[Rfam]
RNA sequence: GUAAGAAAUCUUUCACGUUUUCCGUAGUACUCGUAAAACUGAAAAGAUUUGUUACAG
Numbered sequence: 001g002u003a004a005g006a007a008a009u010c011u012u013u014c015a016c017g018u019u020u021u022c023c024g025u026a027g028u029a030c031u032c033g034u035a036a037a038a039c040u041g042a043a044a045a046g047a048u049u050u051g052u053u054a055c056a057g
Stems, first nucleotide, its partner, number of pairs: 001055004006050008017039005023033002
This 57-nucleotide RNA sequence from Auanema sp. JU1783 belongs to the Rfam family "mir-255 microRNA precursor family". A search with the family's covariance model found it, with a score of 52 bits. The literature on the family includes a 2010 paper in Nat Struct Mol Biol by Zisoulis et al., "Comprehensive discovery of endogenous Argonaute binding sites in Caenorhabditis elegans".